Actino-pnp RNA: a 59-nucleotide sequence from Aeromicrobium sp. IC_218.
[Rfam]
RNA sequence: CCCGGUCCUCGGUAGUGGCUCUCGGGACGACGUCCCGCGGGCCUCGAUCGAAGAUCGGC
Numbered sequence: 001c002c003c004g005g006u007c008c009u010c011g012g013u014a015g016u017g018g019c020u021c022u023c024g025g026g027a028c029g030a031c032g033u034c035c036c037g038c039g040g041g042c043c044u045c046g047a048u049c050g051a052a053g054a055u056c057g058g059c
Stems, first nucleotide, its partner, number of pairs: 002058006009051005017043005023037006
It is annotated as a cis-regulatory element. It scores 66 bits against the family's covariance model.